[Rfam]
RNA: Small nucleolar RNA SNORD45
RNA sequence: GGCUGGGCAUGAGUGCUGGCAUGUAUUAUCUGAGCUGAGCUGAUGUCUGUCACCAUGUUAGCUCUAGAAUUACUCUGAAGCCCA
Numbered sequence: 001g002g003c004u005g006g007g008c009a010u011g012a013g014u015g016c017u018g019g020c021a022u023g024u025a026u027u028a029u030c031u032g033a034g035c036u037g038a039g040c041u042g043a044u045g046u047c048u049g050u051c052a053c054c055a056u057g058u059u060a061g062c063u064c065u066a067g068a069a070u071u072a073c074u075c076u077g078a079a080g081c082c083c084a
Base pairs, nucleotide, nucleotide: 001082002081003080004079